[Rfam]
RNA: glmS glucosamine-6-phosphate activated ribozyme aptamer
Organism: Shouchella lonarensis
RNA sequence: CAUACAUCUAAAGCGCCAGGACUGAUGACAGAUCAGUUGACGAGGAGAGGGCUAAUCGAACUUCGGCGGAUUCCCUCCGGUUGCUGCAUGACAGCCGUAAGCUUCUGUAAAAACAACAAGGUGACUUGUUGCACAAAGACAGAGGUCGCAUGCAC
Numbered sequence: 001c002a003u004a005c006a007u008c009u010a011a012a013g014c015g016c017c018a019g020g021a022c023u024g025a026u027g028a029c030a031g032a033u034c035a036g037u038u039g040a041c042g043a044g045g046a047g048a049g050g051g052c053u054a055a056u057c058g059a060a061c062u063u064c065g066g067c068g069g070a071u072u073c074c075c076u077c078c079g080g081u082u083g084c085u086g087c088a089u090g091a092c093a094g095c096c097g098u099a100a101g102c103u104u105c106u107g108u109a110a111a112a113a114c115a116a117c118a119a120g121g122u123g124a125c126u127u128g129u130u131g132c133a134c135a136a137a138g139a140c141a142g143a144g145g146u147c148g149c150a151u152g153c154a155c
Stems, first nucleotide, its partner, number of pairs: 020038007047077005056066004078097006102145006114131007
Dot-bracket structure: ...................(((((((.....)))))))........(((((....((((...))))......)))))((((((........))))))....((((((......(((((((....)))))))........))))))..........